[Rfam]
RNA sequence: CGUAUGGUGUUCAGCUUCGGGCUGGAUAGCGAUACGGCCUUAAGAUUGAGGU
Numbered sequence: 001c002g003u004a005u006g007g008u009g010u011u012c013a014g015c016u017u018c019g020g021g022c023u024g025g026a027u028a029g030c031g032a033u034a035c036g037g038c039c040u041u042a043a044g045a046u047u048g049a050g051g052u
Stems, first nucleotide, its partner, number of pairs: 001036005007030002011025006
RNA: L31-Gammaproteobacteria ribosomal protein leader